A member of the RNA family "epsC RNA" from Salipaludibacillus neizhouensis, 131 nucleotides long. The source organism's lineage runs through Bacteria, Bacillati, Bacilli, Caryophanales and Salipaludibacillus. The match comes from Rfam's covariance-model search (65 bits). It is annotated as a cis-regulatory element.
RNA sequence: GGGUCAUUUCUUCAAUACCCUUAUCAAACGGAGGAACUCGGCUUUGCUGUGGGUGUGCAUUCUCUAUUGAGAUCACCUUAGGCGCAAUUUUGUUGCCACUGGUGAAGAGUGAGGUUUAGGUUAGAUGCUUU
Numbered sequence: 001g002g003g004u005c006a007u008u009u010c011u012u013c014a015a016u017a018c019c020c021u022u023a024u025c026a027a028a029c030g031g032a033g034g035a036a037c038u039c040g041g042c043u044u045u046g047c048u049g050u051g052g053g054u055g056u057g058c059a060u061u062c063u064c065u066a067u068u069g070a071g072a073u074c075a076c077c078u079u080a081g082g083c084g085c086a087a088u089u090u091u092g093u094u095g096c097c098a099c100u101g102g103u104g105a106a107g108a109g110u111g112a113g114g115u116u117u118a119g120g121u122u123a124g125a126u127g128c129u130u131u
Base pairs, nucleotide, nucleotide: 001020002019003018004017007036008035009034010033011032012031013030037113038112039111040110042107043106044105045104046103047102048101051078052077053076054075055074058071081097082096083095084094118130119129120128121127